This 47-nucleotide RNA from Alligator mississippiensis belongs to the Rfam family "Histone 3' UTR stem-loop".
RNA sequence: CCAAAGGCUCUUUUAAGAGCCACCCACUUUUGCGCAAAAAGAGUUGU
Numbered sequence: 001c002c003a004a005a006g007g008c009u010c011u012u013u014u015a016a017g018a019g020c021c022a023c024c025c026a027c028u029u030u031u032g033c034g035c036a037a038a039a040a041g042a043g044u045u046g047u
Stems, first nucleotide, its partner, number of pairs: 006021006
NCBI's taxonomy places the organism under Eukaryota, Bilateria, Archosauria, Crocodylia, Alligator. The family's RNA type in Rfam is cis-regulatory element.